RNA sequence: GAAUAAGGGUCCACGGUGGAUGCCUUGGAGCUGUCUGGCGAGGAAGGACGUGGUAAGCUGCGAAAAGUCCCGGGGAGGAGCAAACAUCUGCUGAUCCGGGGAUGUCCGAAUGGGGUAACCCGGCCGUUUAGAUGACGGUCACUGUACGGUGAAUCCAUAGCCGUAUGGAGCGAGACGCAGGGAACUGAACCAUCUAAGUACCUGCAGGAAGAGAAAUCAAACGAGAUUCCCUAAGUAGCGGCGAGCGAAAGGGGAAGAGCCUAAACCUAUAGUGUGUAAGUUCUACAGCGUUGCAUUAUGGGGGUUGUAAGCGGUUUCUGGACUGGGUGUAGAACCGGUCGCGCAGUGAUAAAACAAUUGUAUAGCGGAAUGCUACUGGAAGGGCAGCCAGAGAGGGUGAAAGCCCCGUAUGCGAAAUAGAAUUGACUGCGUGGGAGACGAGCUUGAGUACGACGGGACACGAGGAAUCUUGUCGGAAGCAGGGGAGACCACUCUCCAAGGCUAAAUACACGACAGCUACCGAUAGCGAAUAGUACCGUGAGGGAAAGGUGAAAAGUACCCCGGGAGGGGAGUGAAAUAGAACCUGAAACCGUGGACUUA
Numbered sequence: 001g002a003a004u005a006a007g008g009g010u011c012c013a014c015g016g017u018g019g020a021u022g023c024c025u026u027g028g029a030g031c032u033g034u035c036u037g038g039c040g041a042g043g044a045a046g047g048a049c050g051u052g053g054u055a056a057g058c059u060g061c062g063a064a065a066a067g068u069c070c071c072g073g074g075g076a077g078g079a080g081c082a083a084a085c086a087u088c089u090g091c092u093g094a095u096c097c098g099g100g101g102a103u104g105u106c107c108g109a110a111u112g113g114g115g116u117a118a119c120c121c122g123g124c125c126g127u128u129u130a131g132a133u134g135a136c137g138g139u140c141a142c143u144g145u146a147c148g149g150u151g152a153a154u155c156c157a158u159a160g161c162c163g164u165a166u167g168g169a170g171c172g173a174g175a176c177g178c179a180g181g182g183a184a185c186u187g188a189a190c191c192a193u194c195u196a197a198g199u200a201c202c203u204g205c206a207g208g209a210a211g212a213g214a215a216a217u218c219a220a221a222c223g224a225g226a227u228u229c230c231c232u233a234a235g236u237a238g239c240g241g242c243g244a245g246c247g248a249a250a251g252g253g254g255a256a257g258a259g260c261c262u263a264a265a266c267c268u269a270u271a272g273u274g275u276g277u278a279a280g281u282u283c284u285a286c287a288g289c290g291u292u293g294c295a296u297u298a299u300g301g302g303g304g305u306u307g308u309a310a311g312c313g314g315u316u317u318c319u320g321g322a323c324u325g326g327g328u329g330u331a332g333a334a335c336c337g338g339u340c341g342c343g344c345a346g347u348g349a350u351a352a353a354a355c356a357a358u359u360g361u362a363u364a365g366c367g368g369a370a371u372g373c374u375a376c377u378g379g380a381a382g383g384g385c386a387g388c389c390a391g392a393g394a395g396g397g398u399g400a401a402a403g404c405c406c407c408g409u410a411u412g413c414g415a416a417a418u419a420g421a422a423u424u425g426a427c428u429g430c431g432u433g434g435g436a437g438a439c440g441a442g443c444u445u446g447a448g449u450a451c452g453a454c455g456g457g458a459c460a461c462g463a464g465g466a467a468u469c470u471u472g473u474c475g476g477a478a479g480c481a482g483g484g485g486a487g488a489c490c491a492c493u494c495u496c497c498a499a500g501g502c503u504a505a506a507u508a509c510a511c512g513a514c515a516g517c518u519a520c521c522g523a524u525a526g527c528g529a530a531u532a533g534u535a536c537c538g539u540g541a542g543g544g545a546a547a548g549g550u551g552a553a554a555a556g557u558a559c560c561c562c563g564g565g566a567g568g569g570g571a572g573u574g575a576a577a578u579a580g581a582a583c584c585u586g587a588a589a590c591c592g593u594g595g596a597c598u599u600a
Stems, first nucleotide, its partner, number of pairs: 007599010022584001023549002027521002029518007036510002038171002046107003049062003068101007077089003112121003122140007142168009176207001177205005187194002217224002227506001228255005238246002258503004266302011309445003314439005352428001355425005361419003365413003371386004389393001395407003451475008482497005536543002559570004

This 600-nucleotide part of an RNA from Sediminispirochaeta smaragdinae belongs to the Rfam family "Bacterial large subunit ribosomal RNA".
Gene Ontology terms of the family: ribosome and structural constituent of ribosome.
A search with the family's covariance model found it, with a score of 2846 bits.